[Rfam]
RNA sequence: GCCAUGCUUGACUCGUCGCAUGACCGGAUUGAAAGGGGUUAGGUUACCUGGGGCAAACCGGAUGAUUAUCAACCGGGUGGCGAAGC
Numbered sequence: 001g002c003c004a005u006g007c008u009u010g011a012c013u014c015g016u017c018g019c020a021u022g023a024c025c026g027g028a029u030u031g032a033a034a035g036g037g038g039u040u041a042g043g044u045u046a047c048c049u050g051g052g053g054c055a056a057a058c059c060g061g062a063u064g065a066u067u068a069u070c071a072a073c074c075g076g077g078u079g080g081c082g083a084a085g086c
Stems, first nucleotide, its partner, number of pairs: 001024001003022002006019002058076004063071003
RNA: RAGATH-28 RNA